[Rfam]
RNA sequence: AAUAUUACACAAUGUCAUGCCGCUUAAGUCGGCAACAUGCCCAGGCAGCCCCGAUCUUUAAGGCUGCGACACCACAUCCAUGGUGCUGAUCAAAAUAGUCCGCUCUUAGCAUCCGCUUUGCGGCACAACCGGCAAAAACCGGCAGGAUGC
Numbered sequence: 001a002a003u004a005u006u007a008c009a010c011a012a013u014g015u016c017a018u019g020c021c022g023c024u025u026a027a028g029u030c031g032g033c034a035a036c037a038u039g040c041c042c043a044g045g046c047a048g049c050c051c052c053g054a055u056c057u058u059u060a061a062g063g064c065u066g067c068g069a070c071a072c073c074a075c076a077u078c079c080a081u082g083g084u085g086c087u088g089a090u091c092a093a094a095a096u097a098g099u100c101c102g103c104u105c106u107u108a109g110c111a112u113c114c115g116c117u118u119u120g121c122g123g124c125a126c127a128a129c130c131g132g133c134a135a136a137a138a139c140c141g142g143c144a145g146g147a148u149g150c
Stems, first nucleotide, its partner, number of pairs: 012038003019033004024028001045067006053091004068087001070085005120150003129142004
A member of the RNA family "radC RNA" from Saezia sanguinis, 150 nucleotides long. The match comes from Rfam's covariance-model search (70 bits). The source organism's lineage runs through Bacteria, Pseudomonadota, Burkholderiales, Saeziaceae and Saezia.